[Rfam]
RNA sequence: GUCUUAUCUAAGCCGAAACUUUCGUUUAGAAAGUGCGGGGGAUGAUUUAUUUAUUGAACAGAACACCUGGUGCCGCUCAGCUUUGAGCUGUCAGGAUAUCGCUGUUCAUUUGGGGUGAAUAUCGGAUCGUAUCCGAAUAGGGACUGUAUCCUUUUGUCCGAACCCGACAACUAACCUCGUAGGCAAUAUACUAAAAGGAGAG
Numbered sequence: 001g002u003c004u005u006a007u008c009u010a011a012g013c014c015g016a017a018a019c020u021u022u023c024g025u026u027u028a029g030a031a032a033g034u035g036c037g038g039g040g041g042a043u044g045a046u047u048u049a050u051u052u053a054u055u056g057a058a059c060a061g062a063a064c065a066c067c068u069g070g071u072g073c074c075g076c077u078c079a080g081c082u083u084u085g086a087g088c089u090g091u092c093a094g095g096a097u098a099u100c101g102c103u104g105u106u107c108a109u110u111u112g113g114g115g116u117g118a119a120u121a122u123c124g125g126a127u128c129g130u131a132u133c134c135g136a137a138u139a140g141g142g143a144c145u146g147u148a149u150c151c152u153u154u155u156g157u158c159c160g161a162a163c164c165c166g167a168c169a170a171c172u173a174a175c176c177u178c179g180u181a182g183g184c185a186a187u188a189u190a191c192u193a194a195a196a197g198g199a200g201a202g
Stems, first nucleotide, its partner, number of pairs: 012184003018034006035180006044111001113165003122136003141159004
Shown here is a 202-nucleotide sequence from Paenibacillus sp. GP183, a member of the family "c-di-AMP riboswitch aptamer (ydaO/yuaA leader)". Taxonomically the source falls in Paenibacillus (Bacteria, Bacillati, Bacillota, Caryophanales).